[Rfam]
RNA sequence: AAGCCAGUCAAUGAAUCUGCUCACCUGACUUAUGUUUCUAUAGAAUUUUUUUAUAACUGGCAAAAGCAAUGGUAUUUUAGGAGCCUUAAUGACACUGAGGUCAUUAAGGCCCCUGAAAGUGGCUAUAUGA
Numbered sequence: 001a002a003g004c005c006a007g008u009c010a011a012u013g014a015a016u017c018u019g020c021u022c023a024c025c026u027g028a029c030u031u032a033u034g035u036u037u038c039u040a041u042a043g044a045a046u047u048u049u050u051u052u053a054u055a056a057c058u059g060g061c062a063a064a065a066g067c068a069a070u071g072g073u074a075u076u077u078u079a080g081g082a083g084c085c086u087u088a089a090u091g092a093c094a095c096u097g098a099g100g101u102c103a104u105u106a107a108g109g110c111c112c113c114u115g116a117a118a119g120u121g122g123c124u125a126u127a128u129g130a
Stems, first nucleotide, its partner, number of pairs: 003061005016044004071123001073121002083110007091102003